[Rfam]
Rfam assigns this 237-nucleotide sequence from Streptomyces sp. ISL-63 to the family "Streptomyces sRNA 4677". Rfam's curators write: Located in the intergenic region between anti-sigma factor SCO4677 gene and a putative regulatory protein gene SCO4676. scr4677 expression requires the SCO4677 activity and scr4677 sRNA itself seem to affect the levels of the SCO4676-associated transcripts. On this family, see Hindra et al., PLoS One 2014: "Complex intra-operonic dynamics mediated by a small RNA in Streptomyces coelicolor". The match comes from Rfam's covariance-model search (96 bits). Pairs were carried over by alignment from the consensus structure. Rfam 15.1 lists 563 matches to the family in 285 species.
RNA sequence: CGACGCGGCGACGCGGGACAUCAACUACUCAAAGAACCAGGAGAAAGAACCCCACCCCACCCAACCCGUCCUGCACCUGACACAUCCCGGGGGCGCGUCACCCACACGGGUGAGGUUUGCCAACUCAGCUGGAUUUCGCACCGGUUGCCCGGCAUAUGCUCACGCCACCAGACCAGCACAUACGUCGGCCCCCGGCCGGGACUGCAAUCCCGAUCGAGGGCCUGACCACCAAGGAAG
Numbered sequence: 001c002g003a004c005g006c007g008g009c010g011a012c013g014c015g016g017g018a019c020a021u022c023a024a025c026u027a028c029u030c031a032a033a034g035a036a037c038c039a040g041g042a043g044a045a046a047g048a049a050c051c052c053c054a055c056c057c058c059a060c061c062c063a064a065c066c067c068g069u070c071c072u073g074c075a076c077c078u079g080a081c082a083c084a085u086c087c088c089g090g091g092g093g094c095g096c097g098u099c100a101c102c103c104a105c106a107c108g109g110g111u112g113a114g115g116u117u118u119g120c121c122a123a124c125u126c127a128g129c130u131g132g133a134u135u136u137c138g139c140a141c142c143g144g145u146u147g148c149c150c151g152g153c154a155u156a157u158g159c160u161c162a163c164g165c166c167a168c169c170a171g172a173c174c175a176g177c178a179c180a181u182a183c184g185u186c187g188g189c190c191c192c193c194g195g196c197c198g199g200g201a202c203u204g205c206a207a208u209c210c211c212g213a214u215c216g217a218g219g220g221c222c223u224g225a226c227c228a229c230c231a232a233g234g235a236a237g
Stems, first nucleotide, its partner, number of pairs: 007230002010227001016087003098113006128163001130162003187222005193216002198211004